[Rfam]
RNA sequence: AGCGGUUGGUAACUGGCACGGGCGUCGAGGUUUUCCUCUGCGCCCGUGCCCGCAUGUUAGGGGCAGACAAAAAAGA
Numbered sequence: 001a002g003c004g005g006u007u008g009g010u011a012a013c014u015g016g017c018a019c020g021g022g023c024g025u026c027g028a029g030g031u032u033u034u035c036c037u038c039u040g041c042g043c044c045c046g047u048g049c050c051c052g053c054a055u056g057u058u059a060g061g062g063g064c065a066g067a068c069a070a071a072a073a074a075g076a
Stems, first nucleotide, its partner, number of pairs: 003015003016049009027038003
A member of the RNA family "tpke11" from Buttiauxella agrestis, 76 nucleotides long.
The literature on the family includes a 2001 paper in Curr Biol by Rivas et al., "Computational identification of noncoding RNAs in E. coli by comparative genomics".
It is annotated as a small RNA.
The base pairs follow the family's consensus structure, which was predicted with WAR.
It scores 72 bits against the family's covariance model.
From the family's description: In Yersinia located in ICR upstream dnaJ (chaperone)gene. Has temperature responsive RNA structure.